RNA sequence: CAAGCAGGCCACCUUAUCGCGGAUUCUCCCGAUGCUUCGGGUAGAAUACGAGGAAAGUCCGGACACCAUAGUGCAGUAUAGCGGGUAACGCCCGUCCGCUGAAAAGUGAGGACAAGUGCAACAGAAAGCAAGUACAGUUCGGCUGUAGUGAAACCAGGUAAACUCUAUACGGUGAAACGUCAUGUAAAUCGAUGUUUAAGGGCUGCACGCUCAAGUCGAAGGGUAGGCGGUUCGAGCCUUGGGGCAACCUUUGGCCUAGAUAAAUGAUAAGGCAUUUCUGAACUAGUUUCAGAAUAUACAGAAUCCGGCUUAUGGCCUGCUUUUUUU
Numbered sequence: 001c002a003a004g005c006a007g008g009c010c011a012c013c014u015u016a017u018c019g020c021g022g023a024u025u026c027u028c029c030c031g032a033u034g035c036u037u038c039g040g041g042u043a044g045a046a047u048a049c050g051a052g053g054a055a056a057g058u059c060c061g062g063a064c065a066c067c068a069u070a071g072u073g074c075a076g077u078a079u080a081g082c083g084g085g086u087a088a089c090g091c092c093c094g095u096c097c098g099c100u101g102a103a104a105a106g107u108g109a110g111g112a113c114a115a116g117u118g119c120a121a122c123a124g125a126a127a128g129c130a131a132g133u134a135c136a137g138u139u140c141g142g143c144u145g146u147a148g149u150g151a152a153a154c155c156a157g158g159u160a161a162a163c164u165c166u167a168u169a170c171g172g173u174g175a176a177a178c179g180u181c182a183u184g185u186a187a188a189u190c191g192a193u194g195u196u197u198a199a200g201g202g203c204u205g206c207a208c209g210c211u212c213a214a215g216u217c218g219a220a221g222g223g224u225a226g227g228c229g230g231u232u233c234g235a236g237c238c239u240u241g242g243g244g245c246a247a248c249c250u251u252u253g254g255c256c257u258a259g260a261u262a263a264a265u266g267a268u269a270a271g272g273c274a275u276u277u278c279u280g281a282a283c284u285a286g287u288u289u290c291a292g293a294a295u296a297u298a299c300a301g302a303a304u305c306c307g308g309c310u311u312a313u314g315g316c317c318u319g320c321u322u323u324u325u326u327u
Stems, first nucleotide, its partner, number of pairs: 002322010012272007020050002023047005055311003059308005064174004071208004076170005081095005096110001097108004111165002116163002118159002133147006178229004189219005200212004236255003241250003